Shown here is a 92-nucleotide sequence from Carboxydocella thermautotrophica, a member of the family "SAM riboswitch aptamer (S box leader)". The base pairs follow the family's consensus structure, which is taken from published work. A search with the family's covariance model found it, with a score of 74 bits. The source organism's lineage runs through Bacteria, Bacillota, Clostridia, Carboxydocella and Carboxydocella thermautotrophica.
RNA sequence: ACCUUAUCAAGAGUGGUGGAGGGACUGGCCCGAUGAAACCCGGCAACCGGCUGGUAAACCAGCGUCCUGGUGCCAAUUCCUGUAGAUAAGGC
Numbered sequence: 001a002c003c004u005u006a007u008c009a010a011g012a013g014u015g016g017u018g019g020a021g022g023g024a025c026u027g028g029c030c031c032g033a034u035g036a037a038a039c040c041c042g043g044c045a046a047c048c049g050g051c052u053g054g055u056a057a058a059c060c061a062g063c064g065u066c067c068u069g070g071u072g073c074c075a076a077u078u079c080c081u082g083u084a085g086a087u088a089a090g091g092c
Stems, first nucleotide, its partner, number of pairs: 002091007013041001015040003021031003025082001027080002042074004047070002049066003078084001